[Rfam]
RNA sequence: UAUCUGGUUGAUCCUGCCAGUAUUAUAUGCUUAUUUCGAAGAUUAAGCCAUGCAAAUGUGAGAUCGGAUCGGUCGUGCAAACGACUGACUUUCAAUCUGUGUACAGCUCCAUAUAAGAUUUAUAACCGCCGCUGGUUGUGUCAUUUAGAAGGAUAACGCAACCAAAUGUAGCGAUAAUACUUGAGAAAUAAACGAUAAAGCUCAAAGGAAUCAGCUUUAUCCGCUCAGGGUUUCCUGGGUGUUAACCGAUGGUCGAUCAGGCGGGUUUAUUACUGAUCAGUUAGACAACUGUUUCAAUAACAGUUGUGACAGUCACCAGUACGGGGAAUUAGUGUUCGAUUCCGGAGAAGGAGCCUGAGAAACAGCUACUAGUGCCAAGGCAUGCAGCAGGCGCGAAACUUACCCAAUGCGAACAUAUUCGCGAGGUAGUGAAAAGAAAUAAGCAUCUUUCCUUUAUUGGGAAAGAGUACCGGUUUUACUGGUUUACAAUGGCAACGCAUUAGACUUGUGUUGGAGUAACAAUUGGAGGGAAAGUCAGGUGCCAGCAGCCGCGGUAAUACCUGCUCCAAUAGUGUAUGAUAACAUUGCUGC
Numbered sequence: 001u002a003u004c005u006g007g008u009u010g011a012u013c014c015u016g017c018c019a020g021u022a023u024u025a026u027a028u029g030c031u032u033a034u035u036u037c038g039a040a041g042a043u044u045a046a047g048c049c050a051u052g053c054a055a056a057u058g059u060g061a062g063a064u065c066g067g068a069u070c071g072g073u074c075g076u077g078c079a080a081a082c083g084a085c086u087g088a089c090u091u092u093c094a095a096u097c098u099g100u101g102u103a104c105a106g107c108u109c110c111a112u113a114u115a116a117g118a119u120u121u122a123u124a125a126c127c128g129c130c131g132c133u134g135g136u137u138g139u140g141u142c143a144u145u146u147a148g149a150a151g152g153a154u155a156a157c158g159c160a161a162c163c164a165a166a167u168g169u170a171g172c173g174a175u176a177a178u179a180c181u182u183g184a185g186a187a188a189u190a191a192a193c194g195a196u197a198a199a200g201c202u203c204a205a206a207g208g209a210a211u212c213a214g215c216u217u218u219a220u221c222c223g224c225u226c227a228g229g230g231u232u233u234c235c236u237g238g239g240u241g242u243u244a245a246c247c248g249a250u251g252g253u254c255g256a257u258c259a260g261g262c263g264g265g266u267u268u269a270u271u272a273c274u275g276a277u278c279a280g281u282u283a284g285a286c287a288a289c290u291g292u293u294u295c296a297a298u299a300a301c302a303g304u305u306g307u308g309a310c311a312g313u314c315a316c317c318a319g320u321a322c323g324g325g326g327a328a329u330u331a332g333u334g335u336u337c338g339a340u341u342c343c344g345g346a347g348a349a350g351g352a353g354c355c356u357g358a359g360a361a362a363c364a365g366c367u368a369c370u371a372g373u374g375c376c377a378a379g380g381c382a383u384g385c386a387g388c389a390g391g392c393g394c395g396a397a398a399c400u401u402a403c404c405c406a407a408u409g410c411g412a413a414c415a416u417a418u419u420c421g422c423g424a425g426g427u428a429g430u431g432a433a434a435a436g437a438a439a440u441a442a443g444c445a446u447c448u449u450u451c452c453u454u455u456a457u458u459g460g461g462a463a464a465g466a467g468u469a470c471c472g473g474u475u476u477u478a479c480u481g482g483u484u485u486a487c488a489a490u491g492g493c494a495a496c497g498c499a500u501u502a503g504a505c506u507u508g509u510g511u512u513g514g515a516g517u518a519a520c521a522a523u524u525g526g527a528g529g530g531a532a533a534g535u536c537a538g539g540u541g542c543c544a545g546c547a548g549c550c551g552c553g554g555u556a557a558u559a560c561c562u563g564c565u566c567c568a569a570u571a572g573u574g575u576a577u578g579a580u581a582a583c584a585u586u587g588c589u590g591c
Stems, first nucleotide, its partner, number of pairs: 004020005022580010034437003040430001041394001047392003051389003056100002061098003068092001107347003117271003122266002126264002133259004149182003157173003161169002194221006231252002236248003273319003280310003285307008322344004326337004349370002352367003372383004400428001402427003408423005454486001456484001457482004462477004493513002497509003523569006536563004545552002
RNA: Eukaryotic small subunit ribosomal RNA, nucleotides 1 to 591